[Rfam]
RNA sequence: ACCAUAUGCGUGCCAAAUUGUCAUCGUUUGACAACCGGGGGAACCGCCUCAGGGGUGAAUCGACACAUGUCGUAGGGCCUUACCUCUCCUCGCCCGAACCCGUCAGCUAACUCCGGAGGCACUAUUCGACGAGAGG
Numbered sequence: 001a002c003c004a005u006a007u008g009c010g011u012g013c014c015a016a017a018u019u020g021u022c023a024u025c026g027u028u029u030g031a032c033a034a035c036c037g038g039g040g041g042a043a044c045c046g047c048c049u050c051a052g053g054g055g056u057g058a059a060u061c062g063a064c065a066c067a068u069g070u071c072g073u074a075g076g077g078c079c080u081u082a083c084c085u086c087u088c089c090u091c092g093c094c095c096g097a098a099c100c101c102g103u104c105a106g107c108u109a110a111c112u113c114c115g116g117a118g119g120c121a122c123u124a125u126u127c128g129a130c131g132a133g134a135g136g
Stems, first nucleotide, its partner, number of pairs: 011121004018034006035116006045052001053101003061072004075095004
Rfam assigns this 136-nucleotide RNA from Sulfobacillus harzensis to the family "c-di-AMP riboswitch aptamer (ydaO/yuaA leader)".
The source organism's lineage runs through Bacteria, Bacillati, Bacillota, Clostridia and Sulfobacillus.
The match comes from Rfam's covariance-model search (82 bits).
Rfam links the family to the GO terms cyclic-di-AMP binding and regulation of gene expression.
From the family's description: This family represents a conserved RNA structure found upstream of the ydaO and yuaA genes in Bacillus subtilis and related genes in other bacteria.